[Rfam]
Shown here is a 133-nucleotide sequence from Brachypteracias leptosomus, a member of the family "Small nucleolar RNA SNORA77". From the family's description: ACA63 (SNORA77) is a member of the H/ACA class of snoRNAs that guide the sites of modification of uridines to pseudouridines. This snoRNA was identified by computational screening and its expression in mouse experimentally verified by Northern blot and primer extension analysis. ACA63 is proposed to guide the pseudouridylation of 18S rRNA U814.
RNA sequence: GCAGACUCACUCUGUACUGAACUGCAUCCUUCAGUUCAGGUGCUUUUUCCGUCUGCGAGAGUAAGAGUUCAGAGGAGUGACAACUGCCUUCUUUCUCAUAGAAGGCUGUUACAAUUGCUGCUGGGACAUUGCU
Numbered sequence: 001g002c003a004g005a006c007u008c009a010c011u012c013u014g015u016a017c018u019g020a021a022c023u024g025c026a027u028c029c030u031u032c033a034g035u036u037c038a039g040g041u042g043c044u045u046u047u048u049c050c051g052u053c054u055g056c057g058a059g060a061g062u063a064a065g066a067g068u069u070c071a072g073a074g075g076a077g078u079g080a081c082a083a084c085u086g087c088c089u090u091c092u093u094u095c096u097c098a099u100a101g102a103a104g105g106c107u108g109u110u111a112c113a114a115u116u117g118c119u120g121c122u123g124g125g126a127c128a129u130u131g132c133u
Stems, first nucleotide, its partner, number of pairs: 001056006014043004018038003022034003069124004073119002076115001078113002082110001085108002088105002

It scores 56 bits against the family's covariance model. By type it is an H/ACA-box small nucleolar RNA. Gene Ontology terms of the family: nucleolus and RNA processing. Lineage of the source: Eukaryota > Opisthokonta > Sauria > Telluraves > Brachypteracias. Pairs were carried over by alignment from the consensus structure, which was predicted with RNAalifold.